[Rfam]
RNA: T-box leader
RNA sequence: CGCUUGGCUGAGACGAAGAGUAGUAAUUCGUGCACGGUGUCAAAGAGAGCUGGUGGUAGCUGUGAACCAGUACGUCGUUACGAGUGAAUGGACUUCCGAGCCCCAAACCGAACUUUUCAGGACAGUAGGCUUUGGCGGGAUUGCCCAACGUUAUCAAGGGCAGGUAUAGACUGCGGUUUAUACUGGCAAAGCGGCUGUUUCUUAAAUAGCUAAAAAGGUGGUACCACGGGUUUCCUCGUCCUUUAU
Numbered sequence: 001c002g003c004u005u006g007g008c009u010g011a012g013a014c015g016a017a018g019a020g021u022a023g024u025a026a027u028u029c030g031u032g033c034a035c036g037g038u039g040u041c042a043a044a045g046a047g048a049g050c051u052g053g054u055g056g057u058a059g060c061u062g063u064g065a066a067c068c069a070g071u072a073c074g075u076c077g078u079u080a081c082g083a084g085u086g087a088a089u090g091g092a093c094u095u096c097c098g099a100g101c102c103c104c105a106a107a108c109c110g111a112a113c114u115u116u117u118c119a120g121g122a123c124a125g126u127a128g129g130c131u132u133u134g135g136c137g138g139g140a141u142u143g144c145c146c147a148a149c150g151u152u153a154u155c156a157a158g159g160g161c162a163g164g165u166a167u168a169g170a171c172u173g174c175g176g177u178u179u180a181u182a183c184u185g186g187c188a189a190a191g192c193g194g195c196u197g198u199u200u201c202u203u204a205a206a207u208a209g210c211u212a213a214a215a216a217g218g219u220g221g222u223a224c225c226a227c228g229g230g231u232u233u234c235c236u237c238g239u240c241c242u243u244u245a246u
Base pairs, nucleotide, nucleotide: 007101008100015096016095017094018093026085027084028083029082030081031080038074039073040072049071050070051069052068053067054066104134105133106131108129109128136150137149194210195209196208197207198206199205200204215243216242217241218240226239227238228237229236230235